[Rfam]
RNA sequence: GCCUUAUCAAGAGCGGUGGAGGGAAUAGGCCCAAGGAAACCCGGCAACCGGUAGCAAUACACGGUGCUAAAUCCUACAGAUCACGUAAUCUGAAAGAUGAGGA
Numbered sequence: 001g002c003c004u005u006a007u008c009a010a011g012a013g014c015g016g017u018g019g020a021g022g023g024a025a026u027a028g029g030c031c032c033a034a035g036g037a038a039a040c041c042c043g044g045c046a047a048c049c050g051g052u053a054g055c056a057a058u059a060c061a062c063g064g065u066g067c068u069a070a071a072u073c074c075u076a077c078a079g080a081u082c083a084c085g086u087a088a089u090c091u092g093a094a095a096g097a098u099g100a101g102g103a
Stems, first nucleotide, its partner, number of pairs: 002102007013042001015041003021032003026076004043068004048064002051060003072095001077092005
Dot-bracket structure: .(((((((....(.(((...(((..[[[[)))......))))((((.((.(((....)))..))))))...(]]]](((((......)))))..)))))))).
This 103-nucleotide sequence from Thermotalea metallivorans belongs to the Rfam family "SAM riboswitch aptamer (S box leader)". Lineage of the source: Bacteria > Bacillota > Peptostreptococcales > Thermotaleaceae > Thermotalea. Pairs were carried over by alignment from the consensus structure, which is taken from published work. It scores 79 bits against the family's covariance model.